RNA sequence: CGAUAGCUGAACCGCCAGGUCCCCUCCGGGUCGGUGAGCGGCUCGUCGCCGAGGUGGUCGCCGCCGGCCAGCGCUUCGAGGACGGUGUCCUCGCCGUAUUUGCCGGUGCCGAUCCGGUCCACCCGGCCGUGCGCGAUCAACACCAGCCGGUCGCCCGGCGCGCCGGCCUCGGCGAUCAGUUCCCCGGGCGCGUAUUCCUGCUGGGUGAACCGCUCGCCGAGCGCCGCCAGCGCCUGGGAAUCGGUGAACUCCCGCAGCGCGGGCAGCUCGCGCAGCUCCUCGGGGAUGAUCGCCACAUCGCUGCCGGUGAUAUCGAAAUCGAUGCGCCCGUCGCCGAGCGUGUACGUCAGCCGGCGGUUCACGCGGUACGUACCGCCGGACACCUGCACCCAGGGCAGCAGCCGCAGCAGCCAGCGGGACGUGAUGCCCUGCAUCUGCGGUGCCGUUUUGGUGGUGGUCGCCAAAUUCCGUGCCGCGGUGGUACUCAGACUGGAAUUCUGGGACUCUUCCG
Numbered sequence: 001c002g003a004u005a006g007c008u009g010a011a012c013c014g015c016c017a018g019g020u021c022c023c024c025u026c027c028g029g030g031u032c033g034g035u036g037a038g039c040g041g042c043u044c045g046u047c048g049c050c051g052a053g054g055u056g057g058u059c060g061c062c063g064c065c066g067g068c069c070a071g072c073g074c075u076u077c078g079a080g081g082a083c084g085g086u087g088u089c090c091u092c093g094c095c096g097u098a099u100u101u102g103c104c105g106g107u108g109c110c111g112a113u114c115c116g117g118u119c120c121a122c123c124c125g126g127c128c129g130u131g132c133g134c135g136a137u138c139a140a141c142a143c144c145a146g147c148c149g150g151u152c153g154c155c156c157g158g159c160g161c162g163c164c165g166g167c168c169u170c171g172g173c174g175a176u177c178a179g180u181u182c183c184c185c186g187g188g189c190g191c192g193u194a195u196u197c198c199u200g201c202u203g204g205g206u207g208a209a210c211c212g213c214u215c216g217c218c219g220a221g222c223g224c225c226g227c228c229a230g231c232g233c234c235u236g237g238g239a240a241u242c243g244g245u246g247a248a249c250u251c252c253c254g255c256a257g258c259g260c261g262g263g264c265a266g267c268u269c270g271c272g273c274a275g276c277u278c279c280u281c282g283g284g285g286a287u288g289a290u291c292g293c294c295a296c297a298u299c300g301c302u303g304c305c306g307g308u309g310a311u312a313u314c315g316a317a318a319u320c321g322a323u324g325c326g327c328c329c330g331u332c333g334c335c336g337a338g339c340g341u342g343u344a345c346g347u348c349a350g351c352c353g354g355c356g357g358u359u360c361a362c363g364c365g366g367u368a369c370g371u372a373c374c375g376c377c378g379g380a381c382a383c384c385u386g387c388a389c390c391c392a393g394g395g396c397a398g399c400a401g402c403c404g405c406a407g408c409a410g411c412c413a414g415c416g417g418g419a420c421g422u423g424a425u426g427c428c429c430u431g432c433a434u435c436u437g438c439g440g441u442g443c444c445g446u447u448u449u450g451g452u453g454g455u456g457g458u459c460g461c462c463a464a465a466u467u468c469c470g471u472g473c474c475g476c477g478g479u480g481g482u483a484c485u486c487a488g489a490c491u492g493g494a495a496u497u498c499u500g501g502g503a504c505u506c507u508u509c510c511g
Stems, first nucleotide, its partner, number of pairs: 006390001008388002011385001018328002022324001025322002028319001031316002037311001039309002042306001045305001047303002050300003054233002058229001060227002063224002065111004077102004082097005117222002120219001123216001126213002129210002131206002134203002142196001148192002153189006160183001162177001166173002235295003240290004245285001249283002254278001256277003259271003329342003351379007361371003391431007399423002403418001405416001407415001437476004442471002445468001447465006477510002480505003484502005
The family of this 511-nucleotide RNA sequence from Streptomyces auratus is "Saccharopolyspora sRNA 350". Rfam 15.1 lists 1,170 matches to the family in 705 species. Gene Ontology term of the family: regulation of secondary metabolite biosynthetic process. The literature on the family includes a 2013 paper in PLoS One by Liu et al., "Prediction and characterization of small non-coding RNAs related to secondary metabolites in Saccharopolyspora erythraea". A search with the family's covariance model found it, with a score of 173 bits.